A member of the RNA family "Ribosomal protein L19 leader" from Domibacillus epiphyticus, 41 nucleotides long. Rfam's curators write: This family is a putative r-protein leader autoregulatory structure found in B. subtilis and other low-GC Gram-positive bacteria. It is located in the 5' untranslated regions of mRNAs encoding ribosomal protein L19 (rplS). Gene Ontology term of the family: regulation of gene expression. The match comes from Rfam's covariance-model search (38 bits). A reference for the family is Zengel and Lindahl (1994), "Diverse mechanisms for regulating ribosomal protein synthesis in Escherichia coli", Prog Nucleic Acid Res Mol Biol. Pairs were carried over by alignment from the consensus structure, which was predicted with CMfinder.
RNA sequence: ACGGUGUUCCGCUGCCGCAAAUUUGCGGGUAUGAGCAUUUG
Numbered sequence: 001a002c003g004g005u006g007u008u009c010c011g012c013u014g015c016c017g018c019a020a021a022u023u024u025g026c027g028g029g030u031a032u033g034a035g036c037a038u039u040u041g
Base pairs, nucleotide, nucleotide: 003039004038005037006036007035008034009033013031014030015028016027017026018025